[Rfam]
RNA sequence: CCAAGCUGAGGUAGUAGGUUGUAUGGUUUAGAAUUACACCAAGGGAGAUAACUAUACAGCCUCCUAGCUUUCCUUGG
Numbered sequence: 001c002c003a004a005g006c007u008g009a010g011g012u013a014g015u016a017g018g019u020u021g022u023a024u025g026g027u028u029u030a031g032a033a034u035u036a037c038a039c040c041a042a043g044g045g046a047g048a049u050a051a052c053u054a055u056a057c058a059g060c061c062u063c064c065u066a067g068c069u070u071u072c073c074u075u076g077g
Stems, first nucleotide, its partner, number of pairs: 001077005008070003012066003016062012040047001

A member of the RNA family "let-7 microRNA precursor family" from Notechis scutatus, 77 nucleotides long. Taxonomically the source falls in Notechis (Eukaryota, Deuterostomia, Squamata, Serpentes). This family represents the microRNAs (miRNA) let-7 and mir-98. let-7 was identified from a study of developmental timing in C. elegans, and was later shown to be part of a much larger class of non-coding RNAs termed miRNAs. A search with the family's covariance model found it, with a score of 66 bits. Clan: let-7 microRNA precursor clan. Pairs were carried over by alignment from the consensus structure, which was predicted with RNAalifold.